Rfam assigns this 71-nucleotide RNA from Gouania willdenowi to the family "Small nucleolar RNA SNORD47". The match comes from Rfam's covariance-model search (58 bits). Taxonomically the source falls in Gouania (Eukaryota, Neopterygii, Euteleosteomorpha, Gobiesocoidei). Gene Ontology terms of the family: nucleolus and RNA processing. The family's RNA type in Rfam is C/D-box small nucleolar RNA. The family has 20 seed sequences and 755 matches in Rfam 15.1.
[Rfam]
RNA sequence: UGCCUGUGAUGAAAAGAUUCUGCCAAAUGACCUCUGAUUAUAACCCAUACCGUUCCAUUCUUUCUGAGGUG
Numbered sequence: 001u002g003c004c005u006g007u008g009a010u011g012a013a014a015a016g017a018u019u020c021u022g023c024c025a026a027a028u029g030a031c032c033u034c035u036g037a038u039u040a041u042a043a044c045c046c047a048u049a050c051c052g053u054u055c056c057a058u059u060c061u062u063u064c065u066g067a068g069g070u071g
Base pairs, nucleotide, nucleotide: 001071002070003069004068